[Rfam]
RNA sequence: AACGUGCUCCGGGGUCGGUGAGAGUCCGAACCGGCGGUGAUAGUCCGCGAGCGGGACGACGACGAAAAGCGUCGGCCUGCUGAGCCGGUGGAAUUCCGGCACCGACGGUAAUGGUUGCGUGCGAGAGAUCGCCCGGAGCCUCAGUCCGGAUGGGAGGCAGCACGAG
Numbered sequence: 001a002a003c004g005u006g007c008u009c010c011g012g013g014g015u016c017g018g019u020g021a022g023a024g025u026c027c028g029a030a031c032c033g034g035c036g037g038u039g040a041u042a043g044u045c046c047g048c049g050a051g052c053g054g055g056a057c058g059a060c061g062a063c064g065a066a067a068a069g070c071g072u073c074g075g076c077c078u079g080c081u082g083a084g085c086c087g088g089u090g091g092a093a094u095u096c097c098g099g100c101a102c103c104g105a106c107g108g109u110a111a112u113g114g115u116u117g118c119g120u121g122c123g124a125g126a127g128a129u130c131g132c133c134c135g136g137a138g139c140c141u142c143a144g145u146c147c148g149g150a151u152g153g154g155a156g157g158c159a160g161c162a163c164g165a166g
Base pairs, nucleotide, nucleotide: 003164004163005162006161007160008159009157010156016028017027018026032104033103034048035047036046037045043102044101051080052079053078054077055076084100085099086098087097088096106148107147108146